[Rfam]
The family of this 86-nucleotide sequence from Solanum tuberosum is "MIR8024 microRNA precursor family".
RNA sequence: UUGAGGAAUUUGAAGAGUUCAACUUAUAGACUUGAAGAUUUUGAAGACCUAAACUUGCAGACUUGAAGAAUUUGAAGACUUCAACU
Numbered sequence: 001u002u003g004a005g006g007a008a009u010u011u012g013a014a015g016a017g018u019u020c021a022a023c024u025u026a027u028a029g030a031c032u033u034g035a036a037g038a039u040u041u042u043g044a045a046g047a048c049c050u051a052a053a054c055u056u057g058c059a060g061a062c063u064u065g066a067a068g069a070a071u072u073u074g075a076a077g078a079c080u081u082c083a084a085c086u
Stems, first nucleotide, its partner, number of pairs: 001084006009076006018067004025059001027057002032053002035050001037048001
Dot-bracket structure: ((((((..((((((...((((...(.((...((.(.(..........).).))..)).)....))))...))))))..))))))..